[Rfam]
RNA sequence: GCGCCGUGAAAGACUUGAGUAGUGAGACGCUCACUCAUUCGGCGCCUCAUACUGAGUCUUUCGUGAUGUG
Numbered sequence: 001g002c003g004c005c006g007u008g009a010a011a012g013a014c015u016u017g018a019g020u021a022g023u024g025a026g027a028c029g030c031u032c033a034c035u036c037a038u039u040c041g042g043c044g045c046c047u048c049a050u051a052c053u054g055a056g057u058c059u060u061u062c063g064u065g066a067u068g069u070g
Stems, first nucleotide, its partner, number of pairs: 008062008018053002021050001023049004028044002
This 70-nucleotide RNA sequence from Paragonimus skrjabini miyazakii belongs to the Rfam family "mir-71 microRNA precursor family". Its family is annotated with RISC complex and miRNA-mediated post-transcriptional gene silencing in the Gene Ontology. NCBI's taxonomy places the organism under Eukaryota, Bilateria, Digenea, Troglotremata, Paragonimus. A reference for the family is Li et al. (2009), "Direct sequencing and expression analysis of a large number of miRNAs in Aedes aegypti and a multi-species survey of novel mosquito miRNAs", BMC Genomics. Pairs were carried over by alignment from the consensus structure, which was predicted with RNAalifold.